[Rfam]
RNA sequence: UGGCUAUAAAAUAACUUAUUCUGUAGCCAUUUUGUUUGAGUUAUGAUAAUUACUAUGUUAAUUUAUAAGAUUACAGUAACUCUUACUAAGUGGUUUACUAUAACGUUAUGGUAAGUUAUGGUAAAUAUCUUCAUAUGUUACAGUAACCCAACUAUCGUAAAUAUGUAUUGACAUUAUCGCAAAUUAGUAUAUAAAAUUAUCGUAAAUAGAGGUGGCUACAGAGUAACUUAUUUUGUAGUUG
Numbered sequence: 001u002g003g004c005u006a007u008a009a010a011a012u013a014a015c016u017u018a019u020u021c022u023g024u025a026g027c028c029a030u031u032u033u034g035u036u037u038g039a040g041u042u043a044u045g046a047u048a049a050u051u052a053c054u055a056u057g058u059u060a061a062u063u064u065a066u067a068a069g070a071u072u073a074c075a076g077u078a079a080c081u082c083u084u085a086c087u088a089a090g091u092g093g094u095u096u097a098c099u100a101u102a103a104c105g106u107u108a109u110g111g112u113a114a115g116u117u118a119u120g121g122u123a124a125a126u127a128u129c130u131u132c133a134u135a136u137g138u139u140a141c142a143g144u145a146a147c148c149c150a151a152c153u154a155u156c157g158u159a160a161a162u163a164u165g166u167a168u169u170g171a172c173a174u175u176a177u178c179g180c181a182a183a184u185u186a187g188u189a190u191a192u193a194a195a196a197u198u199a200u201c202g203u204a205a206a207u208a209g210a211g212g213u214g215g216c217u218a219c220a221g222a223g224u225a226a227c228u229u230a231u232u233u234u235g236u237a238g239u240u241g
Stems, first nucleotide, its partner, number of pairs: 001241014016226018041205011054191011066179001069178003073174001078168001083160004090155006096145004101140006110130002

The family of this 241-nucleotide RNA from Miscanthus lutarioriparius is "MIR6217 microRNA precursor family". It scores 153 bits against the family's covariance model. The organism belongs to Miscanthus, within Eukaryota. Rfam 15.1 lists 2,266 matches to the family in 13 species.